[Rfam]
RNA sequence: GUUUGUAUUACAACUCACCUGGGCCUCGCUCGAGACCUCGGUUUACCAAUUUUUGAAGGGCUUUCCAUUGUUUUGGGAAGCCA
Numbered sequence: 001g002u003u004u005g006u007a008u009u010a011c012a013a014c015u016c017a018c019c020u021g022g023g024c025c026u027c028g029c030u031c032g033a034g035a036c037c038u039c040g041g042u043u044u045a046c047c048a049a050u051u052u053u054u055g056a057a058g059g060g061c062u063u064u065c066c067a068u069u070g071u072u073u074u075g076g077g078a079a080g081c082c083a
Stems, first nucleotide, its partner, number of pairs: 021038003025034003059082009
Background:
SmY spliceosomal RNA: an 83-nucleotide RNA from Mesorhabditis spiculigera. The literature on the family includes a 1996 paper in RNA by Maroney et al., "Direct analysis of nematode cis- and trans-spliceosomes: a functional role for U5 snRNA in spliced leader addition trans-splicing and the identification of novel Sm snRNPs". It scores 45 bits against the family's covariance model.